[Rfam]
RNA sequence: UGUUCAGUUACGAAAUGGGAUUGAAUAUUUCUCCUGCAUUUCUCCUUUGUAGACUUCGCGCCUAUUCUUUUGAGUAGGCGCGUUUUU
Numbered sequence: 001u002g003u004u005c006a007g008u009u010a011c012g013a014a015a016u017g018g019g020a021u022u023g024a025a026u027a028u029u030u031c032u033c034c035u036g037c038a039u040u041u042c043u044c045c046u047u048u049g050u051a052g053a054c055u056u057c058g059c060g061c062c063u064a065u066u067c068u069u070u071u072g073a074g075u076a077g078g079c080g081c082g083u084u085u086u087u
Base pairs, nucleotide, nucleotide: 003025004024005023006022007021008020009019035053038050039049058081059080060079061078062077063076064075065074066073067072

This 87-nucleotide RNA sequence from Kingella kingae belongs to the Rfam family "Neisseria metabolic switch regulator b (RcoF1/NgncR163)". Rfam describes the family as follows. Sibling sRNA described and independently named in three publications. NCBI's taxonomy places the organism under Bacteria, Betaproteobacteria, Neisseriaceae, Kingella, Kingella kingae. On this family, see Bauer et al., Microbiology 2017: "The sibling sRNAs NgncR_162 and NgncR_163 of Neisseria gonorrhoeae participate in the expression control of metabolic, transport and regulatory proteins". Pairs were carried over by alignment from the consensus structure, which was predicted with RNAfold.